Annotation
A member of the RNA family "Small nucleolar RNA SNORD42" from Anas platyrhynchos, 67 nucleotides long. A reference for the family is Galardi et al. (2002), "Purified box C/D snoRNPs are able to reproduce site-specific 2'-O-methylation of target RNA in vitro", Mol Cell Biol. The family has 7 seed sequences and 848 matches in Rfam 15.1. The base pairs follow the family's consensus structure, which was predicted with PFOLD. From the family's description: snoRNA U42 is found in intron 3 of the ribosomal protein L23a (RPL23a) gene in humans and is also present in mice. It is annotated as a C/D-box small nucleolar RNA. It scores 50 bits against the family's covariance model.
RNA sequence: GUGCAGAUGAUGUUAACAUGUUUUAUCCCUGAGCAAAAUGAUGUUUCCAAAGGAACCACUGAUGCAC
Numbered sequence: 001g002u003g004c005a006g007a008u009g010a011u012g013u014u015a016a017c018a019u020g021u022u023u024u025a026u027c028c029c030u031g032a033g034c035a036a037a038a039u040g041a042u043g044u045u046u047c048c049a050a051a052g053g054a055a056c057c058a059c060u061g062a063u064g065c066a067c
Stems, first nucleotide, its partner, number of pairs: 001067005